[Rfam]
RNA sequence: ACCAUCCUUUUCUUGGGGUUGCGCUACUGCCCGAUGAGCGCUUGGCGAGGGUAGUACUGCUAACGCCUAACAACACGCCCGCGUCGGUAGGGCUCUGCUCUUCUCGGCGCAAUUUUUGGAAAA
Numbered sequence: 001a002c003c004a005u006c007c008u009u010u011u012c013u014u015g016g017g018g019u020u021g022c023g024c025u026a027c028u029g030c031c032c033g034a035u036g037a038g039c040g041c042u043u044g045g046c047g048a049g050g051g052u053a054g055u056a057c058u059g060c061u062a063a064c065g066c067c068u069a070a071c072a073a074c075a076c077g078c079c080c081g082c083g084u085c086g087g088u089a090g091g092g093c094u095c096u097g098c099u100c101u102u103c104u105c106g107g108c109g110c111a112a113u114u115u116u117u118g119g120a121a122a123a
Stems, first nucleotide, its partner, number of pairs: 006018004021060003026055007038046002081110006089101005

The family of this 123-nucleotide RNA from Camelus dromedarius is "U4atac minor spliceosomal RNA". The family's consensus secondary structure is taken from published work. For this family Rfam cites "Evolutionary conservation of minor U12-type spliceosome between plants and humans" (Lorkovic et al., RNA, 2005). About the family: U4atac is an essential component of the minor U12-type spliceosome complex which is required for removal of the rarer class of eukaryotic introns (AT-AC, U12-type).